[Rfam]
RNA sequence: CUCGCUCCACCCCCGGACGUGACACGAACUUUCAGGAGCGAGGACGGGGGACCCACCCUCAUCACGAGACCGGGCAUCGGACCACCGAUGCCCUUGGGGUCAAGCCGGGUGCACGACACCUGGCCGAGCAACCUCUCGCUCGAACCCGACAGCUGACUUCGUAGGCGCGUGGAGAGAGGAAUC
Numbered sequence: 001c002u003c004g005c006u007c008c009a010c011c012c013c014c015g016g017a018c019g020u021g022a023c024a025c026g027a028a029c030u031u032u033c034a035g036g037a038g039c040g041a042g043g044a045c046g047g048g049g050g051a052c053c054c055a056c057c058c059u060c061a062u063c064a065c066g067a068g069a070c071c072g073g074g075c076a077u078c079g080g081a082c083c084a085c086c087g088a089u090g091c092c093c094u095u096g097g098g099g100u101c102a103a104g105c106c107g108g109g110u111g112c113a114c115g116a117c118a119c120c121u122g123g124c125c126g127a128g129c130a131a132c133c134u135c136u137c138g139c140u141c142g143a144a145c146c147c148g149a150c151a152g153c154u155g156a157c158u159u160c161g162u163a164g165g166c167g168c169g170u171g172g173a174g175a176g177a178g179g180a181a182u183c
Base pairs, nucleotide, nucleotide: 003167004166005165006164010043011042044162045161046160047159048158049157054096055095097147098146099145105123106122107121108120126141127140128139129138
Shown here is a 183-nucleotide RNA sequence from Gordonia amarae, a member of the family "c-di-AMP riboswitch aptamer (ydaO/yuaA leader)". It scores 57 bits against the family's covariance model. The source organism's lineage runs through Bacteria, Actinomycetota, Mycobacteriales, Gordonia and Gordonia amarae.